[Rfam]
RNA sequence: UAUUUCUAAAACCCUAUCUCCACCUCCAUGUGGUGACCGCUGGGAGGUUUUUCUUAUCGAAAAGUUGCAGAGGGAGAAGG
Numbered sequence: 001u002a003u004u005u006c007u008a009a010a011a012c013c014c015u016a017u018c019u020c021c022a023c024c025u026c027c028a029u030g031u032g033g034u035g036a037c038c039g040c041u042g043g044g045a046g047g048u049u050u051u052u053c054u055u056a057u058c059g060a061a062a063a064g065u066u067g068c069a070g071a072g073g074g075a076g077a078a079g080g
Stems, first nucleotide, its partner, number of pairs: 013080003017076001019074003022034003046066008

drz-agam-1 ribozyme: an 80-nucleotide RNA sequence from Hermetia illucens. Gene Ontology term of the family: catalytic activity. Taxonomically the source falls in Hermetia (Eukaryota, Arthropoda, Insecta, Pterygota). The family's consensus secondary structure is taken from published work.